Overview:
Shown here is a 128-nucleotide RNA sequence from Philodulcilactobacillus myokonensis, a member of the family "Ribosomal protein L20 leader". Rfam classes the family as a cis-regulatory leader. The organism belongs to Philodulcilactobacillus, within Bacteria.
RNA sequence: UAAUAAAAGCAGAGGCUUCCCGCUUCUCGCCUAAGUGAUUUUAAUUGCUGGGCUUGAUAAGAGAUUAAUUGUGACAAUUUAUCACAAAUGAUGGCGGGUGCAUUCUGCAUCCGCCAUUUUUCUGCUUC
Number, nucleotide and partner (000 for none) at each position: 001u000002a000003a000004u000005a000006a000007a000008a000009g000010c000011a027012g026013a025014g024015g023016c022017u000018u000019c000020c000021c000022g016023c015024u014025u013026c012027u011028c000029g053030c052031c051032u000033a000034a000035g048036u047037g046038a045039u044040u000041u000042u000043a000044a039045u038046u037047g036048c035049u000050g000051g031052g030053c029054u000055u000056g000057a000058u000059a000060a000061g000062a000063g000064a000065u000066u000067a000068a000069u000070u000071g000072u000073g000074a000075c000076a000077a000078u000079u000080u000081a000082u000083c000084a000085c000086a000087a000088a000089u000090g000091a000092u000093g115094g114095c113096g112097g111098g110099u109100g108101c107102a106103u000104u000105c000106u102107g101108c100109a099110u098111c097112c096113g095114c094115c093116a000117u000118u000119u000120u000121u000122c000123u000124g000125c000126u000127u000128c000